[Rfam]
RNA sequence: AGCAGAGUAGAUAUUGCGCGUUAAGUGUUAGAGGAUGGGAAGUUGCCUCUAAACGAAAAGCAGUAAGCUUGCGGUGUAAUAUUGCUUCCGCUGUU
Numbered sequence: 001a002g003c004a005g006a007g008u009a010g011a012u013a014u015u016g017c018g019c020g021u022u023a024a025g026u027g028u029u030a031g032a033g034g035a036u037g038g039g040a041a042g043u044u045g046c047c048u049c050u051a052a053a054c055g056a057a058a059a060g061c062a063g064u065a066a067g068c069u070u071g072c073g074g075u076g077u078a079a080u081a082u083u084g085c086u087u088c089c090g091c092u093g094u095u
Base pairs, nucleotide, nucleotide: 001095002094003093004092005091010083011082012081013080014079015078016077017076018075019073020072021071025054026053028052029051030050031049032048033047034046038089039088040087041086042085058070059069060068061067
RNA: THF (Tetrahydrofolate) riboswitch aptamer
Organism: Vallitalea pronyensis